[Rfam]
RNA sequence: CUGUGGUGCAUUGUAGUUGCAUUGCAUGAUCCUGAAGCCCAGUGCAAUGUGUCUGCAGUGCAGUACAG
Numbered sequence: 001c002u003g004u005g006g007u008g009c010a011u012u013g014u015a016g017u018u019g020c021a022u023u024g025c026a027u028g029a030u031c032c033u034g035a036a037g038c039c040c041a042g043u044g045c046a047a048u049g050u051g052u053c054u055g056c057a058g059u060g061c062a063g064u065a066c067a068g
Stems, first nucleotide, its partner, number of pairs: 001068004006064001007062010019050001021048007

Shown here is a 68-nucleotide RNA from Myripristis murdjan, a member of the family "mir-33 microRNA precursor family". The family has 73 seed sequences and 1,467 matches in Rfam 15.1. A search with the family's covariance model found it, with a score of 72 bits. Lineage of the source: Eukaryota > Bilateria > Deuterostomia > Neoteleostei > Myripristis. The family's consensus secondary structure was predicted with PFOLD. A reference for the family is Li et al. (2009), "Direct sequencing and expression analysis of a large number of miRNAs in Aedes aegypti and a multi-species survey of novel mosquito miRNAs", BMC Genomics.